A member of the RNA family "msiK RNA" from Glycomyces paridis, 59 nucleotides long.
It scores 66 bits against the family's covariance model.
By type it is a cis-regulatory element.

[Rfam]
RNA sequence: CACAACCGCCUUUUACAACGGAUCGUCUGGCACGUACCUGCCAGUGAAAGGGAACAUCA
Number, nucleotide and partner (000 for none) at each position: 001c000002a000003c000004a000005a000006c000007c000008g000009c051010c050011u049012u048013u047014u046015a045016c000017a000018a000019c000020g000021g000022a000023u000024c000025g000026u000027c044028u043029g042030g041031c040032a039033c000034g000035u000036a000037c000038c000039u032040g031041c030042c029043a028044g027045u015046g014047a013048a012049a011050g010051g009052g000053a000054a000055c000056a000057u000058c000059a000